[Rfam]
RNA sequence: CCCGCGUACCGGGCCCCUCUGGCGAGCCGCAAGGCUCGUGAUGUCGGACGCUGCA
Numbered sequence: 001c002c003c004g005c006g007u008a009c010c011g012g013g014c015c016c017c018u019c020u021g022g023c024g025a026g027c028c029g030c031a032a033g034g035c036u037c038g039u040g041a042u043g044u045c046g047g048a049c050g051c052u053g054c055a
Stems, first nucleotide, its partner, number of pairs: 006049002009047004022039007
Shown here is a 55-nucleotide RNA from Aurantiacibacter luteus, a member of the family "terC RNA". It is annotated as a cis-regulatory element. Taxonomically the source falls in Aurantiacibacter (Bacteria, Pseudomonadati, Sphingomonadales, Erythrobacteraceae). The family has 129 seed sequences and 1,112 matches in Rfam 15.1. The match comes from Rfam's covariance-model search (54 bits). The family's consensus secondary structure is taken from published work.